[Rfam]
Shown here is a 60-nucleotide RNA sequence from Mesorhizobium sp. Root157, a member of the family "terC RNA". The match comes from Rfam's covariance-model search (44 bits). Taxonomically the source falls in Mesorhizobium (Bacteria, Pseudomonadota, Alphaproteobacteria, Phyllobacteriaceae). The family's consensus secondary structure is taken from published work.
RNA sequence: UGCGCGGGCCAGGCCCCUCUGACUGUCGCCUUCUAGCGACCGUGAUGUCGGACCGCGUGA
Numbered sequence: 001u002g003c004g005c006g007g008g009c010c011a012g013g014c015c016c017c018u019c020u021g022a023c024u025g026u027c028g029c030c031u032u033c034u035a036g037c038g039a040c041c042g043u044g045a046u047g048u049c050g051g052a053c054c055g056c057g058u059g060a
Stems, first nucleotide, its partner, number of pairs: 006054002009051002012048001022043002025040005